Shown here is a 120-nucleotide sequence from Olea europaea, a member of the family "MIR390 microRNA precursor family".

RNA sequence: AUGGGGAAUCCAUAAAGCUCAGGAGGGAUAGCGUCAUGUGUCAUCUUGACUGUUAUCUCCACAAGUGUGGUGGUAGAUGACAUAUGGCGCUAUCCAUCCUGAGUUUCAUGGGUUCUAUGA
Numbered sequence: 001a002u003g004g005g006g007a008a009u010c011c012a013u014a015a016a017g018c019u020c021a022g023g024a025g026g027g028a029u030a031g032c033g034u035c036a037u038g039u040g041u042c043a044u045c046u047u048g049a050c051u052g053u054u055a056u057c058u059c060c061a062c063a064a065g066u067g068u069g070g071u072g073g074u075a076g077a078u079g080a081c082a083u084a085u086g087g088c089g090c091u092a093u094c095c096a097u098c099c100u101g102a103g104u105u106u107c108a109u110g111g112g113u114u115c116u117a118u119g120a
Stems, first nucleotide, its partner, number of pairs: 010111001016105009026095010
Background
The organism belongs to Olea europaea, within Eukaryota. The literature on the family includes a 2005 paper in Nucleic Acids Res by Gustafson et al., "ASRP: the Arabidopsis Small RNA Project Database".